Shown here is an 87-nucleotide RNA from Musa balbisiana, a member of the family "Small nucleolar RNA R44/J54/Z268 family".
RNA sequence: CCUGCAAGUGAUGACAAGAUAGACAGGGACUCAGGCACUCUUUACAGAGAAUGAUGACUUGGUCUAUGGGAAUCUAUCUGAUGCACA
Numbered sequence: 001c002c003u004g005c006a007a008g009u010g011a012u013g014a015c016a017a018g019a020u021a022g023a024c025a026g027g028g029a030c031u032c033a034g035g036c037a038c039u040c041u042u043u044a045c046a047g048a049g050a051a052u053g054a055u056g057a058c059u060u061g062g063u064c065u066a067u068g069g070g071a072a073u074c075u076a077u078c079u080g081a082u083g084c085a086c087a
Stems, first nucleotide, its partner, number of pairs: 003085004
Rfam 15.1 lists 1,168 matches to the family in 228 species. Rfam classes the family as a C/D-box small nucleolar RNA.